[Rfam]
RNA sequence: AAGACACCGCGGAACUGACGGAAUGAUGUGGAAUCGACCACGUGAACCGCGGAUGAUCUGAUUGGCCGACCGUCUGGGCAGGGAAA
Numbered sequence: 001a002a003g004a005c006a007c008c009g010c011g012g013a014a015c016u017g018a019c020g021g022a023a024u025g026a027u028g029u030g031g032a033a034u035c036g037a038c039c040a041c042g043u044g045a046a047c048c049g050c051g052g053a054u055g056a057u058c059u060g061a062u063u064g065g066c067c068g069a070c071c072g073u074c075u076g077g078g079c080a081g082g083g084a085a086a
Base pairs, nucleotide, nucleotide: 007052008051009050010049011048012047015044017074018073019072020071021070028041029040030039031038063081065079066078067077
Shown here is an 86-nucleotide RNA sequence, a member of the family "ZMP/ZTP riboswitch aptamer (pfl RNA motif)".